[Rfam]
A member of the RNA family "DUF805b RNA" from Niastella koreensis, 35 nucleotides long. It is annotated as a cis-regulatory element.
RNA sequence: ACAGGCCUAGCCGAAAACCUGUAACAGAGUAGGCA
Numbered sequence: 001a002c003a004g005g006c007c008u009a010g011c012c013g014a015a016a017a018c019c020u021g022u023a024a025c026a027g028a029g030u031a032g033g034c035a
Stems, first nucleotide, its partner, number of pairs: 002021004010034003
Clan: DUF805 clan.